sodF sRNA: an 82-nucleotide RNA from Streptomyces sp. ISL-11.
[Rfam]
RNA sequence: CCUGCUCGUGAUCGUCUUCUCACCCUUCACGCGGCGGGCACGAGGAAGGCCCCCGCGCGGUCGACUCGCGCGGGGGCCUUUC
Numbered sequence: 001c002c003u004g005c006u007c008g009u010g011a012u013c014g015u016c017u018u019c020u021c022a023c024c025c026u027u028c029a030c031g032c033g034g035c036g037g038g039c040a041c042g043a044g045g046a047a048g049g050c051c052c053c054c055g056c057g058c059g060g061u062c063g064a065c066u067c068g069c070g071c072g073g074g075g076g077c078c079u080u081u082c
Stems, first nucleotide, its partner, number of pairs: 001038006008030004014024001044082016
Taxonomically the source falls in Streptomyces (Bacteria, Bacillati, Actinomycetes, Kitasatosporales). For this family Rfam cites "Inverse regulation of Fe- and Ni-containing SOD genes by a Fur family regulator Nur through small RNA processed from 3'UTR of the sodF mRNA" (Kim et al., Nucleic Acids Res, 2014). Pairs were carried over by alignment from the consensus structure. The family has 6 seed sequences and 336 matches in Rfam 15.1. The match comes from Rfam's covariance-model search (65 bits).